A member of the RNA family "Group II catalytic intron D1-D4-3" from Sulfurifustis variabilis, 170 nucleotides long. Rfam describes the family as follows. Group II introns are found in rRNA, tRNA and mRNA of organelles in fungi, plants and protists, and also in mRNA in bacteria. The source organism's lineage runs through Bacteria, Gammaproteobacteria, Acidiferrobacterales, Acidiferrobacteraceae and Sulfurifustis. Rfam 15.1 lists 4,274 matches to the family in 1,585 species.
RNA sequence: GCGCCGUGAGGACGUCGCUGAAAGAAGCGGGGAGCGAAACCGCGAGCCGACGAACAGGAACCGGAUACGAGGCGAACGCUUUCCAGGGCGAGCGGGCAAAUGGCCGCGAAGCCCUUGCGACCAAGGGAGAGCGGCGUAAAUCCGGCGGUUGUGCGGGGACGGUCGUGACC
Numbered sequence: 001g002c003g004c005c006g007u008g009a010g011g012a013c014g015u016c017g018c019u020g021a022a023a024g025a026a027g028c029g030g031g032g033a034g035c036g037a038a039a040c041c042g043c044g045a046g047c048c049g050a051c052g053a054a055c056a057g058g059a060a061c062c063g064g065a066u067a068c069g070a071g072g073c074g075a076a077c078g079c080u081u082u083c084c085a086g087g088g089c090g091a092g093c094g095g096g097c098a099a100a101u102g103g104c105c106g107c108g109a110a111g112c113c114c115u116u117g118c119g120a121c122c123a124a125g126g127g128a129g130a131g132c133g134g135c136g137u138a139a140a141u142c143c144g145g146c147g148g149u150u151g152u153g154c155g156g157g158g159a160c161g162g163u164c165g166u167g168a169c170c
Base pairs, nucleotide, nucleotide: 001015002014003013004011005010027170031166034163035162040156041155042154043153044152045150046149047148048147049146061145062144063143064142065141066140072137073136074135077133078132079131080130081129082128083127086114087113088112089111092107093106094105095104